[Rfam]
RNA sequence: UAUCUGGUUGAAACAAGAUUUGUCGUGAGAAGUCAGCCGAAGCCAUAGUACCUGUUACUCACCAUAAUGGGGAAGGGC
Number, nucleotide and partner (000 for none) at each position: 001u000002a019003u018004c017005u016006g000007g014008u013009u000010g000011a000012a000013a008014c007015a000016a005017g004018a003019u002020u000021u000022g000023u000024c000025g000026u000027g000028a000029g000030a000031a000032g000033u040034c039035a000036g000037c000038c000039g034040a033041a000042g078043c077044c076045a000046u000047a000048g000049u000050a000051c071052c070053u069054g068055u067056u066057a000058c000059u000060c000061a000062c000063c000064a000065u000066a056067a055068u054069g053070g052071g051072g000073a000074a000075g000076g044077g043078c042